[Rfam]
RNA sequence: UUUGGAAUGUGAUGACAGACACUCAAUUUAUCAAAGCACCAGCAAUAAUGCUGAAUUGUUUAUUUGCACGUCAGUCUGAUCCAAA
Dot-bracket structure: (((((.(........................................................................))))))
Numbered sequence: 001u002u003u004g005g006a007a008u009g010u011g012a013u014g015a016c017a018g019a020c021a022c023u024c025a026a027u028u029u030a031u032c033a034a035a036g037c038a039c040c041a042g043c044a045a046u047a048a049u050g051c052u053g054a055a056u057u058g059u060u061u062a063u064u065u066g067c068a069c070g071u072c073a074g075u076c077u078g079a080u081c082c083a084a085a
Stems, first nucleotide, its partner, number of pairs: 001085005007080001